[Rfam]
RNA sequence: AACCACUGAUGAAAUCAGAUUCUGCCAAAUGAAUUCCAGUGAUAUUACACAUUUUCGUUCCACUGUUUCUGAGGUU
Numbered sequence: 001a002a003c004c005a006c007u008g009a010u011g012a013a014a015u016c017a018g019a020u021u022c023u024g025c026c027a028a029a030u031g032a033a034u035u036c037c038a039g040u041g042a043u044a045u046u047a048c049a050c051a052u053u054u055u056c057g058u059u060c061c062a063c064u065g066u067u068u069c070u071g072a073g074g075u076u
Stems, first nucleotide, its partner, number of pairs: 001076004
A member of the RNA family "Small nucleolar RNA SNORD47" from Alligator sinensis, 76 nucleotides long. Rfam links the family to the GO terms RNA processing and nucleolus. Taxonomically the source falls in Alligator (Eukaryota, Metazoa, Deuterostomia, Crocodylia). A search with the family's covariance model found it, with a score of 60 bits. Pairs were carried over by alignment from the consensus structure, which was predicted with ILM.